[Rfam]
RNA: nqrA-Marinomonas RNA
RNA sequence: AUCUUUAUAAUACGUCGGUUUUUUGGUGAAGUGAGUUUGUGUUUUACAAUUAAUUUAAUAUUGGUUGUUCGCUUAUGCAUGUUUUCCCGGAGGGGGGUGUAGGCAUGACACAUUACGCUUUUUGUGUUCAAUUU
Numbered sequence: 001a002u003c004u005u006u007a008u009a010a011u012a013c014g015u016c017g018g019u020u021u022u023u024u025g026g027u028g029a030a031g032u033g034a035g036u037u038u039g040u041g042u043u044u045u046a047c048a049a050u051u052a053a054u055u056u057a058a059u060a061u062u063g064g065u066u067g068u069u070c071g072c073u074u075a076u077g078c079a080u081g082u083u084u085u086c087c088c089g090g091a092g093g094g095g096g097g098u099g100u101a102g103g104c105a106u107g108a109c110a111c112a113u114u115a116c117g118c119u120u121u122u123u124g125u126g127u128u129c130a131a132u133u134u
Base pairs, nucleotide, nucleotide: 009128010127011126012125013124028121029120030119031118032117033116038112039111040110041109042108047067048066049065050064051063052062053061054060071104072103073102074101075100076099077098078097085096086095087094088093